[Rfam]
RNA sequence: UCUGGAUAAACUUGCAUCCAUCCAAGGGAAUGGAGCAAGUCACUGUACGGAGCAUUUCCGUAAGGUAUGAGCGUAGCGAUUACUUUACAGAAUUAAUUAAGUAACACAUUUUGGGAUUGCCAAAGGCUUACAUAUAAGUGUAAACGACCCAAGUUUGCACUUGGAGUGAAAUUCUGAAGUGCUAGGAUAACCGUACAUCCUUUAACAUAUUUUAUGUUAUAAAAGUAAUCUUGAAUAGCUUUAACUAGCUUUUCGAGUUACGGAAGG
Numbered sequence: 001u002c003u004g005g006a007u008a009a010a011c012u013u014g015c016a017u018c019c020a021u022c023c024a025a026g027g028g029a030a031u032g033g034a035g036c037a038a039g040u041c042a043c044u045g046u047a048c049g050g051a052g053c054a055u056u057u058c059c060g061u062a063a064g065g066u067a068u069g070a071g072c073g074u075a076g077c078g079a080u081u082a083c084u085u086u087a088c089a090g091a092a093u094u095a096a097u098u099a100a101g102u103a104a105c106a107c108a109u110u111u112u113g114g115g116a117u118u119g120c121c122a123a124a125g126g127c128u129u130a131c132a133u134a135u136a137a138g139u140g141u142a143a144a145c146g147a148c149c150c151a152a153g154u155u156u157g158c159a160c161u162u163g164g165a166g167u168g169a170a171a172u173u174c175u176g177a178a179g180u181g182c183u184a185g186g187a188u189a190a191c192c193g194u195a196c197a198u199c200c201u202u203u204a205a206c207a208u209a210u211u212u213u214a215u216g217u218u219a220u221a222a223a224a225g226u227a228a229u230c231u232u233g234a235a236u237a238g239c240u241u242u243a244a245c246u247a248g249c250u251u252u253u254c255g256a257g258u259u260a261c262g263g264a265a266g267g
Base pairs, nucleotide, nucleotide: 001051002050003049004048006046007045008044010040011039012038013037014036015035017034018033019032020031021030022028068177070175071174073172074171080169081168082167083166084165136162137161139159140158141157142156143155144154145153184201185200186199187198188197191263192262193261194260195259196225203219204218205217206216207215230257231256232255233254234253235252237250238249239248240247
Shown here is a 267-nucleotide RNA sequence, a member of the family "IS605-orfB-I RNA". Rfam classes the family as a small RNA. Rfam's curators put it in the seed alignment.